[Rfam]
RNA sequence: UUUUAACUGCGAGUUCGCCUUUCGGCAAACGUCGGGAUUGUAUGCCGUUUCUCACUUCGUUCCGAAACGGUGGAAAUUCUGCAAUCCUCAGAAUUUGAAAAUUCUUGCGGUUGUAGAAUUUAUAG
Numbered sequence: 001u002u003u004u005a006a007c008u009g010c011g012a013g014u015u016c017g018c019c020u021u022u023c024g025g026c027a028a029a030c031g032u033c034g035g036g037a038u039u040g041u042a043u044g045c046c047g048u049u050u051c052u053c054a055c056u057u058c059g060u061u062c063c064g065a066a067a068c069g070g071u072g073g074a075a076a077u078u079c080u081g082c083a084a085u086c087c088u089c090a091g092a093a094u095u096u097g098a099a100a101a102u103u104c105u106u107g108c109g110g111u112u113g114u115a116g117a118a119u120u121u122a123u124a125g
Stems, first nucleotide, its partner, number of pairs: 011033002013030003017026003044071008076119009086110002090105006
Notes: Rfam assigns this 125-nucleotide RNA from Treponema pedis to the family "TD-1 RNA". The family's RNA type in Rfam is cis-regulatory element. A reference for the family is Weinberg et al. (2007), "Identification of 22 candidate structured RNAs in bacteria using the CMfinder comparative genomics pipeline", Nucleic Acids Res. The organism belongs to Treponema pedis, within Bacteria. The family has 28 seed sequences and 147 matches in Rfam 15.1.